RNA: Plant signal recognition particle RNA
Organism: Chara braunii
RNA sequence: GCCGGGAUGAGUCGCGUCGUCCUGCAGUCCGAGCUAUACGGGGGCAUGGUGGUGUGGAUCGGGUUUCUCCUGUGGGGUCCCAAAGCCUCGUGUCGAUGGCUUGCCCACUCCGAGCCUAGAUUCGCCAGUGCGUCUUCUCCGAAGGGAGAUGGCGCGCCGGUGCUGAAGAGGGGGAGAAUGCGCGAGGCGGGAAACCGAGCAGCGAAGACUCACCGACCCAGGCAGCGGAGGGAUAACGAGCCUGAGCGUGGGCUGGUGGGUCGGCCUUGCAGAUCCGAGAUUGGAAACCACCACCUUU
Numbered sequence: 001g002c003c004g005g006g007a008u009g010a011g012u013c014g015c016g017u018c019g020u021c022c023u024g025c026a027g028u029c030c031g032a033g034c035u036a037u038a039c040g041g042g043g044g045c046a047u048g049g050u051g052g053u054g055u056g057g058a059u060c061g062g063g064u065u066u067c068u069c070c071u072g073u074g075g076g077g078u079c080c081c082a083a084a085g086c087c088u089c090g091u092g093u094c095g096a097u098g099g100c101u102u103g104c105c106c107a108c109u110c111c112g113a114g115c116c117u118a119g120a121u122u123c124g125c126c127a128g129u130g131c132g133u134c135u136u137c138u139c140c141g142a143a144g145g146g147a148g149a150u151g152g153c154g155c156g157c158c159g160g161u162g163c164u165g166a167a168g169a170g171g172g173g174g175a176g177a178a179u180g181c182g183c184g185a186g187g188c189g190g191g192a193a194a195c196c197g198a199g200c201a202g203c204g205a206a207g208a209c210u211c212a213c214c215g216a217c218c219c220a221g222g223c224a225g226c227g228g229a230g231g232g233a234u235a236a237c238g239a240g241c242c243u244g245a246g247c248g249u250g251g252g253c254u255g256g257u258g259g260g261u262c263g264g265c266c267u268u269g270c271a272g273a274u275c276c277g278a279g280a281u282u283g284g285a286a287a288c289c290a291c292c293a294c295c296u297u298u
Base pairs, nucleotide, nucleotide: 001045002044003043004023005022006021007020008019009018010017028042029041030040031039048295049294050293051292052291053290054289056288059285060284061282062281064278065277068273070272071271072270073269074268075267076266077265078264079263080258084254085253086252087251089250090249091248092247098242099241100240101239102238103237105232106231108230109229110228111227112226114223115222116221117220119218121216122215123162124161125160126159128157129156130155131154132153133152134151136149137148138147139146140145163168170213172211173210174209179206181204182203183202188197189196190195